[Rfam]
RNA sequence: UAUCUAUUUAUGCCGAAUUCUCGAUUGGAGAAACGGGAGAACCAAGUUGGGUGAAUUAAUCCUGCUGUCAAGGGAUUAUAGGGAACCUUCAACCGAACCCUUAAGCUAACCUCGUAGGCACCGAAGGAGAGUAGCA
Numbered sequence: 001u002a003u004c005u006a007u008u009u010a011u012g013c014c015g016a017a018u019u020c021u022c023g024a025u026u027g028g029a030g031a032a033a034c035g036g037g038a039g040a041a042c043c044a045a046g047u048u049g050g051g052u053g054a055a056u057u058a059a060u061c062c063u064g065c066u067g068u069c070a071a072g073g074g075a076u077u078a079u080a081g082g083g084a085a086c087c088u089u090c091a092a093c094c095g096a097a098c099c100c101u102u103a104a105g106c107u108a109a110c111c112u113c114g115u116a117g118g119c120a121c122c123g124a125a126g127g128a129g130a131g132u133a134g135c136a
Stems, first nucleotide, its partner, number of pairs: 011120004018032003033115005049100003057078007081094002
Source information: This 136-nucleotide sequence from Cohnella herbarum belongs to the Rfam family "c-di-AMP riboswitch aptamer (ydaO/yuaA leader)". A search with the family's covariance model found it, with a score of 64 bits. Lineage of the source: Bacteria > Bacillati > Caryophanales > Paenibacillaceae > Cohnella. From the family's description: This family represents a conserved RNA structure found upstream of the ydaO and yuaA genes in Bacillus subtilis and related genes in other bacteria.